[Rfam]
RNA: Small nucleolar RNA SNORA43
Organism: Muntiacus reevesi
Nucleotides: 130
Stems, first nucleotide, its partner, number of pairs: 003059001005057004022049001024047002072127003080118003085113002090107006
Number, partner (000 for none) and nucleotide at each position: 001000g002000a003059u004000g005057c006056u007055g008054g009000a010000c011000u012000u013000g014000c015000c016000g017000g018000c019000a020000c021000c022049a023000c024047g025046g026000g027000u028000g029000c030000c031000g032000c033000u034000g035000c036000c037000c038000u039000g040000c041000u042000g043000c044000g045000c046025c047024c048000a049022u050000g051000c052000u053000g054008u055007u056006g057005g058000g059003g060000c061000a062000g063000a064000g065000a066000g067000g068000a069000a070000g071000c072127g073126g074125c075000u076000a077000u078000u079000u080118c081117u082116a083000c084000g085113c086112u087000c088000a089000g090107u091106g092105c093104u094103c095102a096000g097000a098000a099000c100000u101000g102095u103094g104093a105092g106091c107090a108000c109000u110000u111000a112086a113085g114000a115000a116082u117081g118080g119000u120000u121000u122000g123000u124000a125074g126073c127072c128000c129000u130000c